A member of the RNA family "Lysine riboswitch aptamer" from Clostridium fungisolvens, 184 nucleotides long. Lineage of the source: Bacteria > Bacillati > Clostridia > Eubacteriales > Clostridium.
[Rfam]
RNA sequence: UAGUGAGGUAGAGGCGCGGUGUUUAAUAGUUCUUAGAGGAGUUUGAGAGUACUAUGAUUCUAAGAAGAAGGAAAUGUCGCCGAAGUUUAUAAUACUUCUCAGUAUUAUUUGCUGGGUCUGCAGUUAAGAACUGCAGGACUGUCUCAAUAAACAUCCCGGUUUAUUGAGUUGUGCUAUCUCAUUU
Numbered sequence: 001u002a003g004u005g006a007g008g009u010a011g012a013g014g015c016g017c018g019g020u021g022u023u024u025a026a027u028a029g030u031u032c033u034u035a036g037a038g039g040a041g042u043u044u045g046a047g048a049g050u051a052c053u054a055u056g057a058u059u060c061u062a063a064g065a066a067g068a069a070g071g072a073a074a075u076g077u078c079g080c081c082g083a084a085g086u087u088u089a090u091a092a093u094a095c096u097u098c099u100c101a102g103u104a105u106u107a108u109u110u111g112c113u114g115g116g117u118c119u120g121c122a123g124u125u126a127a128g129a130a131c132u133g134c135a136g137g138a139c140u141g142u143c144u145c146a147a148u149a150a151a152c153a154u155c156c157c158g159g160u161u162u163a164u165u166g167a168g169u170u171g172u173g174c175u176a177u178c179u180c181a182u183u184u
Base pairs, nucleotide, nucleotide: 006179007178008177009176010175011174016080017079018078019077020076021075022074023073024072031065032064033063034062035061036060037059038058084113085112086111089108090107091106092105093104094103095102114140115139117137118136119135120134121133122132123131124130143168144167145166146165147164148163149162150161151160